RNA sequence: AGCUCUCGCUGGGAUGCGGUCUCCUCCCCGUUUCCCAAGGAUCCUGACUCAACUUCCCCUGAGUCAGGCUCCUUGGGAAGCGGUGGGGGACCGGACCCCAGCGCGGGUCUCCG
Dot-bracket structure: ......(((((((....((.((((.(.(((((((((((((..((((((((..........))))))))..))))))))))))).))))).))....)))))))..........
Numbered sequence: 001a002g003c004u005c006u007c008g009c010u011g012g013g014a015u016g017c018g019g020u021c022u023c024c025u026c027c028c029c030g031u032u033u034c035c036c037a038a039g040g041a042u043c044c045u046g047a048c049u050c051a052a053c054u055u056c057c058c059c060u061g062a063g064u065c066a067g068g069c070u071c072c073u074u075g076g077g078a079a080g081c082g083g084u085g086g087g088g089g090a091c092c093g094g095a096c097c098c099c100a101g102c103g104c105g106g107g108u109c110u111c112c113g
Stems, first nucleotide, its partner, number of pairs: 007103007018092002021089004026085001028083013043068008